[Rfam]
RNA sequence: GCAGCAUCUCGUUAGGCGAGGCUCCUGCACGAAUACAGGCCACUGACCUCACGACGUCGAGAGACGCCCAAGGUCAGGACAGAUCUUCCCGGAUUAAGGGGUGAUCCCAAGUGGCUUCCCGCGAGGGACACGUCGUGCAGUGUCGAAGCUUUUACGUGGAGAUGCACC
Dot-bracket structure: ....(((((((([.(((..(((..((((((((......(((((.(((((.....((((....))))....)))))......((((..(((......])))..))))....))))).(((......)))....)))))))).)))...)))...))...))))))....

Description:
A member of the RNA family "M-box riboswitch aptamer (ykoK leader)" from Rhodococcus triatomae, 168 nucleotides long. The match comes from Rfam's covariance-model search (148 bits). On this family, see Barrick et al., Proc Natl Acad Sci U S A 2004: "New RNA motifs suggest an expanded scope for riboswitches in bacterial genetic control". Gene Ontology terms of the family: regulation of gene expression and response to magnesium ion. M-box riboswitch, also know as ykoK leader is described as a metaloregulatory RNA that sense divalent metals and function as a genetic control element of genes related to divalent metal transport in bacteria. Lineage of the source: Bacteria > Bacillati > Actinomycetota > Mycobacteriales > Rhodococcus. The base pairs follow the family's consensus structure.